The family of this 272-nucleotide sequence from Melopsittacus undulatus is "Small Cajal body specific RNA 6". NCBI's taxonomy places the organism under Eukaryota, Craniata, Sauria, Psittaciformes, Melopsittacus. Rfam links the family to the GO terms nucleolus and RNA processing. It is annotated as a small Cajal body RNA.

[Rfam]
RNA sequence: GGUCAAUGAUGACUUAGUAAAAGGUCUGAGGGCACAGGGGGAUUACACUCUAUUACCCUUUUGGCUCCCAGCAGUCCCUGUUCUGUCAUGCUAUAGUAGAGCUAUGAUUGAGGAAGGGAUGGCUGACAGUUUGGGAUCAAUUCAGUUCCAGUUCCCCACAGUGAAGGGAGUUGUGGCACUGCAUGUUAUCCAACAGAGCUGGUUAAGAGGAGCUCAUGGUAGUGGGGUGUCUUCAUUUUUUGUGUGUGAUCUAAAGUUUUCAAGCUGAGACC
Numbered sequence: 001g002g003u004c005a006a007u008g009a010u011g012a013c014u015u016a017g018u019a020a021a022a023g024g025u026c027u028g029a030g031g032g033c034a035c036a037g038g039g040g041g042a043u044u045a046c047a048c049u050c051u052a053u054u055a056c057c058c059u060u061u062u063g064g065c066u067c068c069c070a071g072c073a074g075u076c077c078c079u080g081u082u083c084u085g086u087c088a089u090g091c092u093a094u095a096g097u098a099g100a101g102c103u104a105u106g107a108u109u110g111a112g113g114a115a116g117g118g119a120u121g122g123c124u125g126a127c128a129g130u131u132u133g134g135g136a137u138c139a140a141u142u143c144a145g146u147u148c149c150a151g152u153u154c155c156c157c158a159c160a161g162u163g164a165a166g167g168g169a170g171u172u173g174u175g176g177c178a179c180u181g182c183a184u185g186u187u188a189u190c191c192a193a194c195a196g197a198g199c200u201g202g203u204u205a206a207g208a209g210g211a212g213c214u215c216a217u218g219g220u221a222g223u224g225g226g227g228u229g230u231c232u233u234c235a236u237u238u239u240u241u242g243u244g245u246g247u248g249a250u251c252u253a254a255a256g257u258u259u260u261c262a263a264g265c266u267g268a269g270a271c272c
Stems, first nucleotide, its partner, number of pairs: 001272004040252005047228008065212004069125004074120002082111002085108006091101001133191001135190003139186001148176003154170001156168002